Ribosomal protein L20 leader: a 137-nucleotide sequence from Paenibacillus foliorum. Rfam classes the family as a cis-regulatory leader. A search with the family's covariance model found it, with a score of 62 bits. The family's consensus secondary structure was predicted with CMfinder. Gene Ontology term of the family: regulation of gene expression. This family is a putative r-protein leader autoregulatory structure found in B. subtilis and other low-GC Gram-positive bacteria. Taxonomically the source falls in Paenibacillus (Bacteria, Bacillati, Bacillota, Bacilli).
Nucleotides: 137
Stems, first nucleotide, its partner, number of pairs: 011026006028051003034046005102124004107119004
Number, partner (000 for none) and nucleotide at each position: 001000u002000u003000a004000a005000a006000a007000a008000a009000g010000a011026a012025g013024a014023a015022g016021c017000g018000c019000c020000c021016g022015c023014u024013u025012c026011u027000c028051a029050c030049c031000u032000g033000a034046c035045c036044g037043a038042c039000u040000u041000g042038g043037u044036u045035g046034g047000c048000u049030g050029g051028u052000a053000a054000u055000c056000a057000a058000a059000g060000c061000u062000a063000a064000a065000g066000u067000g068000a069000a070000u071000u072000u073000u074000u075000a076000a077000g078000a079000u080000g081000a082000u083000a084000g085000u086000c087000a088000c089000u090000u091000g092000a093000a094000c095000c096000u097000u098000u099000u100000a101000a102124g103123a104122c105121g106000u107119g108118g109117g110116c111000c112000u113000u114000g115000c116110g117109c118108c119107c120000u121105c122104g123103u124102c125000u126000u127000u128000u129000u130000u131000a132000a133000u134000u135000u136000u137000a